[Rfam]
RNA sequence: GUGACCCUCUAGAGGGAAGCACUUUCUGUUUGAAAGAAAGGAAAGUGCAUCCUUUUAGAGGAUUAC
Number, nucleotide and partner (000 for none) at each position: 001g066002u065003g064004a063005c000006c000007c060008u059009c058010u000011a056012g055013a054014g053015g052016g051017a050018a000019g048020c047021a046022c045023u044024u043025u042026c041027u000028g000029u040030u039031u000032g000033a000034a000035a000036g000037a000038a000039a030040g029041g026042a025043a024044a023045g022046u021047g020048c019049a000050u017051c016052c015053u014054u013055u012056u011057a000058g009059a008060g007061g000062a000063u004064u003065a002066c001
Shown here is a 66-nucleotide sequence from Pongo pygmaeus, a member of the family "mir-515 microRNA precursor family". A reference for the family is Bentwich et al. (2005), "Identification of hundreds of conserved and nonconserved human microRNAs", Nat Genet. Gene Ontology terms of the family: RISC complex and miRNA-mediated post-transcriptional gene silencing. The family is grouped with related families in Rfam's "mir-290 clan". It is one of the family's seed sequences. The organism belongs to Pongo, within Eukaryota.